Shown here is a 69-nucleotide sequence from Capsicum annuum, a member of the family "Plastid-clpP 5UTR RNA".
From the family's description: Plastid clpP is a non-coding RNA (ncRNA) recognised in plastids. It was found in the prime untranslated region (5UTR) of a protease complex subunit (clpP) in plastids, suggesting a posible cis-regulatory function.
NCBI's taxonomy places the organism under Eukaryota, Tracheophyta, Gunneridae, asterids, Capsicum.
The literature on the family includes a 2023 paper in Plant Commun by Richter et al., "Retrograde signaling in plants: A critical review focusing on the GUN pathway and beyond".
By type it is a cis-regulatory element.

RNA sequence: AAUUCUGUUCAUAGGAACAAAGAGAAGCACAUUUAUUCUAUAUUCAAUAAGUACCAAUACACAAUGGUG
Numbered sequence: 001a002a003u004u005c006u007g008u009u010c011a012u013a014g015g016a017a018c019a020a021a022g023a024g025a026a027g028c029a030c031a032u033u034u035a036u037u038c039u040a041u042a043u044u045c046a047a048u049a050a051g052u053a054c055c056a057a058u059a060c061a062c063a064a065u066g067g068u069g
Stems, first nucleotide, its partner, number of pairs: 003022002006019005044067002051060003